[Rfam]
Shown here is a 303-nucleotide RNA sequence from Flagellimonas eckloniae, a member of the family "Bacterial RNase P class A". Lineage of the source: Bacteria > Pseudomonadati > Flavobacteriia > Flavobacteriales > Flagellimonas. By type it is a ribozyme.
Nucleotides: 303
Stems, first nucleotide, its partner, number of pairs: 001299001003297009012269007020047002023044008052287003056284005061171004068205004073167005078092005093107001094105004108162002113160002115156002130144006175226004186216005197209004233252008
Number, partner (000 for none) and nucleotide at each position: 001299a002000u003297a004296g005295c006294a007293g008292g009291c010290c011289g012269c013268c014267u015266u016265a017264u018263c019000g020047c021046u022000g023044c024043a025042a026041u027040u028039u029038c030037a031000a032000u033000u034000a035000a036000u037030u038029g039028g040027a041026a042025u043024u044023g045000a046021a047020g048000a049000g050000g051000a052287a053286a054285g055000u056284c057283c058282g059281g060280a061171c062170a063169c064168c065000a066000a067000a068205g069204u070203g071202c072000a073167g074166c075165a076164u077163a078092g079091c080090g081089g082088g083000u084000a085000a086000c087000g088082c089081c090080c091079g092078u093107c094105c095104g096103c097102c098000g099000a100000a101000a102097g103096g104095u105094g106000a107093g108162g109161a110000c111000c112000a113160g114159u115156g116155c117000a118000a119000c120000a121000g122000a123000a124000a125000g126000c127000a128000a129000g130144u131143a132142c133141a134140g135139u136000u137000a138000g139135g140134c141133u142132g143131u144130a145000g146000u147000g148000a149000a150000a151000u152000c153000a154000g155116g156115u157000a158000a159114a160113c161109u162108c163077u164076a165075u166074g167073c168064g169063g170062u171061g172000a173000a174000a175226c176225g177224u178223c179000a180000u181000g182000u183000a184000a185000a186216c187215c188214a189213a190212u191000g192000u193000u194000u195000g196000a197209g198208g199207g200206c201000u202071g203070c204069a205068c206200g207199c208198c209197c210000a211000a212190a213189u214188u215187g216186g217000a218000g219000g220000g221000u222000a223178g224177g225176c226175g227000g228000u229000u230000g231000g232000a233252a234251c235250u236249u237248u238247u239246g240245g241000g242000u243000a244000a245240c246239u247238g248237a249236a250235a251234g252233u253000c254000u255000a256000g257000a258000u259000a260000a261000a262000u263018g264017a265016u266015a267014g268013g269012g270000c271000c272000a273000g274000a275000c276000a277000g278000a279000a280060u281059c282058c283057g284056g285054c286053u287052u288000a289011u290010g291009g292008c293007c294006u295005g296004c297003u298000u299001u300000u301000u302000u303000u